Overview
Shown here is a 320-nucleotide sequence from Eudromia elegans, a member of the family "Nuclear RNase P". Rfam's curators write: Ribonuclease P (RNase P) is a ubiquitous endoribonuclease, found in archaea, bacteria and eukarya as well as chloroplasts and mitochondria. Its best characterised activity is the generation of mature 5'-ends of tRNAs by cleaving the 5'-leader elements of precursor-tRNAs. Cellular RNase Ps are ribonucleoproteins. NCBI's taxonomy places the organism under Eukaryota, Chordata, Euteleostomi, Aves, Eudromia. A search with the family's covariance model found it, with a score of 167 bits.
Nucleotides: 320
Stems, first nucleotide, its partner, number of pairs: 001320004007314003012275006020058005034048005067304005077250004087101005102117006118246005124240001138231010276292007
Number, partner (000 for none) and nucleotide at each position: 001320u002319c003318c004317g005000g006000g007314g008313g009312a010000a011000g012275c013274u014273c015272a016271c017270c018000g019000c020058c021057g022056a023055g024054g025000c026000c027000a028000c029000g030000c031000a032000c033000c034048g035047g036046g037045u038044g039000c040000g041000c042000g043000u044038c045037a046036c047035c048034c049000g050000c051000c052000c053000g054024c055023c056022u057021c058020g059000g060000g061000g062000a063000a064000g065000g066000u067304c068303u069302g070301a071300g072000g073000g074000a075000a076000g077250g078249g079248c080247c081000a082000c083000g084000a085000g086000c087101g088100g089099c090098c091097c092000u093000a094000g095000c096000a097091g098090g099089g100088c101087c102117c103116c104115g105114c106113c107112c108000g109000c110000g111000u112107g113106g114105g115104c116103g117102g118246g119245u120244g121243a122242g123000c124240c125000a126000c127000c128000a129000g130000c131000a132000a133000g134000g135000g136000g137000g138231g139230g140229c141228g142227c143226c144225g145224c146223g147222g148000c149000g150000g151000c152000c153000g154000g155000c156000c157000c158000g159000g160000g161000c162000a163000g164000g165000a166000g167000a168000a169000g170000c171000c172000g173000c174000g175000g176000g177000u178000u179000g180000g181000g182000g183000g184000g185000g186000c187000c188000u189000c190000g191000u192000c193000c194000c195000g196000c197000c198000c199000c200000g201000c202000c203000c204000c205000g206000g207000c208000g209000g210000a211000u212000g213000c214000u215000c216000a217000u218000g219000g220000c221000c222147c223146c224145g225144c226143g227142g228141c229140g230139c231138u232000g233000u234000g235000a236000g237000a238000c239000a240124g241000a242122c243121u244120c245119a246118c247080g248079g249078c250077c251000g252000g253000c254000a255000u256000u257000g258000c259000u260000g261000a262000g263000u264000c265000c266000a267000a268000u269000g270017g271016g272015u273014g274013a275012g276292g277291u278290g279289g280288g281287g282286c283000a284000c285000g286282g287281c288280c289279c290278c291277a292276c293000a294000a295000c296000c297000c298000a299000a300071u301070u302069c303068a304067g305000a306000c307000u308000a309000c310000u311000c312009u313008c314007c315000c316000c317004c318003g319002g320001a